[Rfam]
Nucleotides: 188
Base pairs, nucleotide, nucleotide: 004042005041006040012035013034014033015032016031018029019028020027021026057181058180059179060178061177062176063083064082066080067079068078069077070076088130089129090128091127096126097125098124099123102122103121106116107115108114109113133167134166136164137163139161140160141159142158143157144156146154147153
Number, partner (000 for none) and nucleotide at each position: 001000u002000c003000g004042c005041g006040c007000u008000u009000g010000u011000c012035g013034c014033c015032c016031g017000c018029u019028c020027g021026u022000c023000a024000a025000g026021g027020c028019g029018g030000a031016c032015g033014g034013g035012c036000c037000a038000a039000u040006g041005c042004g043000c044000a045000u046000a047000g048000a049000u050000g051000a052000u053000c054000u055000g056000g057181u058180c059179g060178a061177g062176c063083c064082g065000c066080u067079g068078g069077g070076c071000c072000a073000c074000g075000a076070g077069c078068c079067c080066a081000c082064c083063g084000c085000c086000a087000a088130g089129c090128g091127c092000a093000u094000c095000a096126g097125g098124g099123a100000u101000a102122u103121c104000g105000a106116c107115g108114g109113c110000a111000c112000c113109g114108c115107c116106g117000c118000a119000g120000c121103g122102a123099u124098c125097c126096c127091g128090c129089g130088c131000a132000g133167u134166u135000u136164g137163c138000c139161c140160g141159c142158u143157g144156a145000a146154g147153c148000c149000g150000c151000g152000c153147g154146c155000c156144u157143c158142g159141g160140c161139g162000a163137g164136c165000u166134g167133a168000c169000g170000u171000g172000a173000a174000u175000a176062g177061c178060u179059c180058g181057a182000a183000u184000c185000u186000c187000c188000g